Annotation: The record is an 83-nucleotide RNA from Parasporobacterium paucivorans, which matches "S10-Clostridia ribosomal protein leader" in Rfam. Taxonomically the source falls in Parasporobacterium paucivorans (Bacteria, Bacillati, Clostridia, Lachnospirales). The family's consensus secondary structure is taken from published work.
[Rfam]
RNA sequence: AGAUAGCUAUGAUACGAGAGGUUGCUGCAUGCAAAUGGCAGGUUUUCCGUGGAGCGAAUGUCAUGUUAGGAAACUGGCGACAA
Numbered sequence: 001a002g003a004u005a006g007c008u009a010u011g012a013u014a015c016g017a018g019a020g021g022u023u024g025c026u027g028c029a030u031g032c033a034a035a036u037g038g039c040a041g042g043u044u045u046u047c048c049g050u051g052g053a054g055c056g057a058a059u060g061u062c063a064u065g066u067u068a069g070g071a072a073a074c075u076g077g078c079g080a081c082a083a
Stems, first nucleotide, its partner, number of pairs: 014050003018047004025041004059082004065078004